Annotation
Shown here is an 87-nucleotide RNA from Roseovarius albus, a member of the family "tRNA". About the family: Transfer RNA (tRNA) molecules are approximately 80 nucleotides in length. Gene Ontology term of the family: triplet codon-amino acid adaptor activity. The family's RNA type in Rfam is transfer RNA. The organism belongs to Roseovarius, within Bacteria.
[Rfam]
RNA sequence: GGAGGAGUGGCAGAGUGGUCGAAUGCACCGGUCUUGAAAACCGACGUAGGUGAAAGUCUACCGUGGGUUCGAAUCCCACCUCCUCCG
Numbered sequence: 001g002g003a004g005g006a007g008u009g010g011c012a013g014a015g016u017g018g019u020c021g022a023a024u025g026c027a028c029c030g031g032u033c034u035u036g037a038a039a040a041c042c043g044a045c046g047u048a049g050g051u052g053a054a055a056g057u058c059u060a061c062c063g064u065g066g067g068u069u070c071g072a073a074u075c076c077c078a079c080c081u082c083c084u085c086c087g
Base pairs, nucleotide, nucleotide: 001086002085003084004083005082006081007080010026011025012024029043030042031041032040063079064078065077066076067075